[Rfam]
RNA sequence: AUCUUUAUAAUGCGUCGGUUUUUUGGUGAAGUGAGUUUACGUUAAAAGGCUGGUUUAGUAACAGUCGAUGGAUUGUGAAUGUUUUCCCGGAGGGGGUCACAGAUAUCACGUAAUGCGCUUUUGUGUUCAAUUU
Numbered sequence: 001a002u003c004u005u006u007a008u009a010a011u012g013c014g015u016c017g018g019u020u021u022u023u024u025g026g027u028g029a030a031g032u033g034a035g036u037u038u039a040c041g042u043u044a045a046a047a048g049g050c051u052g053g054u055u056u057a058g059u060a061a062c063a064g065u066c067g068a069u070g071g072a073u074u075g076u077g078a079a080u081g082u083u084u085u086c087c088c089g090g091a092g093g094g095g096g097u098c099a100c101a102g103a104u105a106u107c108a109c110g111u112a113a114u115g116c117g118c119u120u121u122u123g124u125g126u127u128c129a130a131u132u133u
Base pairs, nucleotide, nucleotide: 009127010126011125012124013123028121029120030119031118032117033116038112039111040110041109042108048066049065050064051063052062054060071104073102074101075100076099077098078097085096086095087094088093

The family of this 133-nucleotide RNA from Marinomonas sp. S3726 is "nqrA-Marinomonas RNA". The family's RNA type in Rfam is small RNA. The family's consensus secondary structure is taken from published work. Lineage of the source: Bacteria > Pseudomonadati > Gammaproteobacteria > Oceanospirillales > Marinomonas.